[Rfam]
RNA sequence: CAACCUACAUGGUGACAAGUAGCUGAAUCAUCAGAAGUCAGCAGAGGUCAUAGUACGAUUGGGUCUAGAACCAGUCAGAAGGAC
Dot-bracket structure: ((..((((.((....)).)))).))............((....)).(((.......(((((..........))))).....)))
Annotation
The record is an 84-nucleotide sequence from Ureibacillus sinduriensis, which matches "Group II catalytic intron D1-D4-1" in Rfam. From the family's description: Group II introns are found in rRNA, tRNA and mRNA of organelles in fungi, plants and protists, and also in mRNA in bacteria. Taxonomically the source falls in Ureibacillus sinduriensis (Bacteria, Bacillati, Bacilli, Caryophanaceae). The match comes from Rfam's covariance-model search (69 bits).